The record is a 145-nucleotide RNA sequence from Intestinibaculum porci, which matches "glmS glucosamine-6-phosphate activated ribozyme aptamer" in Rfam. The base pairs follow the family's consensus structure, which is taken from published work. Rfam classes the family as a riboswitch. A search with the family's covariance model found it, with a score of 85 bits.
RNA sequence: GUAUAUACACUAGCGCCAGGACUCUAUGAGUUGACGAGGACCGGAUUAAUCGAAAGAUUCGGCGGAUGAUCCGGAGGUAUGAUACUACCUGAACGAUCGGCAAAAAAGCGGAGUGAUCCGCUAACAGAUCCGAUCUGGUAUCCAU
Number, nucleotide and partner (000 for none) at each position: 001g000002u000003a000004u000005a000006u000007a000008c000009a000010c000011u000012a000013g000014c000015g000016c000017c000018a000019g000020g032021a031022c030023u029024c028025u000026a000027u000028g024029a023030g022031u021032u020033g000034a000035c000036g000037a000038g000039g000040a000041c074042c073043g072044g071045a070046u000047u000048a000049a000050u062051c061052g060053a059054a000055a000056g000057a000058u000059u053060c052061g051062g050063c000064g000065g000066a000067u000068g000069a000070u045071c044072c043073g042074g041075a090076g089077g088078u087079a086080u000081g000082a000083u000084a000085c000086u079087a078088c077089c076090u075091g000092a000093a000094c000095g135096a134097u133098c132099g131100g130101c000102a000103a000104a000105a000106a000107a122108g121109c120110g119111g118112a117113g000114u000115g000116a000117u112118c111119c110120g109121c108122u107123a000124a000125c000126a000127g000128a000129u000130c100131c099132g098133a097134u096135c095136u000137g000138g000139u000140a000141u000142c000143c000144a000145u000